[Rfam]
Background:
Rfam assigns this 381-nucleotide sequence from Kluyveromyces lactis to the family "RNase MRP". The sequence is in the family's curated seed alignment. Rfam's curators write: RNase MRP is an enzymatically active ribonucleoprotein with two distinct roles in eukaryotes. In mitochondria it plays a direct role in the initiation of mitochondrial DNA replication. In the nucleus it is involved in precursor rRNA processing, where it cleaves the internal transcribed spacer 1 between 18S and 5.8S rRNAs. Despite distinct functions, RNase MRP has been shown to be evolutionarily related to RNase P. Like eukaryotic RNase P, RNase MRP is not catalytically active without associated protein subunits. Lineage of the source: Eukaryota > saccharomyceta > Saccharomycotina > Saccharomycetaceae > Kluyveromyces.

RNA sequence: UUUUGUAGUCGAAGAAUCGUCACUGAUCGAAGCUUACAUAAGGAACGGAUUUUAUCUGUUCAAUUGAAAUGAUAUCAUUUCUAUAGCUUUGGGUAGAAAGUCUCCGACCAGUCCGUAAGCGGAAACGUAAUGAGAUUUAAAAACUUUUCAAAUGUUUAAAUCAACUCAUUAAUCGUGUUGGUUUUCUGUCACGGUUUCUAUCCAGAGGCUGUUUUAGAAGCCUCUGUGUCUUGGGUACUGAAGUAUUUCUUUACUUUAAACGAAAGUUAUGACGAUUGCCCGAGCGUUUUUAUCUCUUUUUUUGUUACUUCUGUUUACAGGGGUGAUUAGGGAGGAGGUAGCUUGGGUAACCCAAUGGAGCUUACUUUCUCGGCUCACGAA
Numbered sequence: 001u002u003u004u005g006u007a008g009u010c011g012a013a014g015a016a017u018c019g020u021c022a023c024u025g026a027u028c029g030a031a032g033c034u035u036a037c038a039u040a041a042g043g044a045a046c047g048g049a050u051u052u053u054a055u056c057u058g059u060u061c062a063a064u065u066g067a068a069a070u071g072a073u074a075u076c077a078u079u080u081c082u083a084u085a086g087c088u089u090u091g092g093g094u095a096g097a098a099a100g101u102c103u104c105c106g107a108c109c110a111g112u113c114c115g116u117a118a119g120c121g122g123a124a125a126c127g128u129a130a131u132g133a134g135a136u137u138u139a140a141a142a143a144c145u146u147u148u149c150a151a152a153u154g155u156u157u158a159a160a161u162c163a164a165c166u167c168a169u170u171a172a173u174c175g176u177g178u179u180g181g182u183u184u185u186c187u188g189u190c191a192c193g194g195u196u197u198c199u200a201u202c203c204a205g206a207g208g209c210u211g212u213u214u215u216a217g218a219a220g221c222c223u224c225u226g227u228g229u230c231u232u233g234g235g236u237a238c239u240g241a242a243g244u245a246u247u248u249c250u251u252u253a254c255u256u257u258a259a260a261c262g263a264a265a266g267u268u269a270u271g272a273c274g275a276u277u278g279c280c281c282g283a284g285c286g287u288u289u290u291u292a293u294c295u296c297u298u299u300u301u302u303u304g305u306u307a308c309u310u311c312u313g314u315u316u317a318c319a320g321g322g323g324u325g326a327u328u329a330g331g332g333a334g335g336a337g338g339u340a341g342c343u344u345g346g347g348u349a350a351c352c353c354a355a356u357g358g359a360g361c362u363u364a365c366u367u368u369c370u371c372g373g374c375u376c377a378c379g380a381a
Stems, first nucleotide, its partner, number of pairs: 002381005008374005016276006027092007048076003052072003098363003102360004119128003193202003205249003212243006222235003278348008